[Rfam]
RNA: FMN riboswitch aptamer (RFN element)
Organism: Aquisalibacillus elongatus
Nucleotides: 132
Base pairs, nucleotide, nucleotide: 003130004129005128006127007126008125009124010123017029018028019027031112032111033101034100035059036058037057038056054099055098063076064075081097082096083095084094085093103115104114105113
Number, partner (000 for none) and nucleotide at each position: 001000c002000u003130g004129g005128u006127u007126c008125u009124u010123c011000g012000g013000g014000g015000c016000a017029g018028g019027g020000u021000g022000a023000a024000a025000u026000u027019c028018c029017c030000g031112a032111c033101c034100g035059g036058c037057g038056g039000u040000a041000a042000g043000g044000g045000u046000u047000a048000u049000a050000c051000c052000a053000a054099g055098u056038c057037c058036g059035c060000g061000a062000c063076c064075c065000g066000c067000a068000a069000g070000c071000g072000u073000g074000c075064g076063g077000u078000g079000g080000a081097u082096c083095u084094a085093g086000u087000g088000a089000g090000a091000a092000u093085c094084u095083a096082g097081a098055g099054c100034c101033g102000a103115c104114a105113g106000u107000u108000a109000c110000a111032g112031u113105c114104u115103g116000g117000a118000u119000g120000g121000g122000a123010g124009a125008a126007g127006g128005a129004u130003c131000a132000g